[Rfam]
RNA sequence: GGGAGUAGAUGUCUACCUGGUGAGGGCCUUGGACUUCAAAUCCAAUGGCGGGCGUUGAUCCGUCCGUGGUGGGUUCGAUUCCCACCUACUCCC
Numbered sequence: 001g002g003g004a005g006u007a008g009a010u011g012u013c014u015a016c017c018u019g020g021u022g023a024g025g026g027c028c029u030u031g032g033a034c035u036u037c038a039a040a041u042c043c044a045a046u047g048g049c050g051g052g053c054g055u056u057g058a059u060c061c062g063u064c065c066g067u068g069g070u071g072g073g074u075u076c077g078a079u080u081c082c083c084a085c086c087u088a089c090u091c092c093c
Base pairs, nucleotide, nucleotide: 001093002092003091004090005089006088007087008086011027012026013025014024017022029045030044031043032042033041048067049066050065051064052063070084071083072082073081
This 93-nucleotide sequence from Dethiobacter alkaliphilus belongs to the Rfam family "Selenocysteine transfer RNA". Lineage of the source: Bacteria > Bacillati > Dethiobacterales > Dethiobacteraceae > Dethiobacter alkaliphilus. For this family Rfam cites "Eukaryotic selenocysteine tRNA has the 9/4 secondary structure" (Mizutani and Goto, FEBS Lett, 2000). A search with the family's covariance model found it, with a score of 70 bits. Gene Ontology term of the family: triplet codon-amino acid adaptor activity.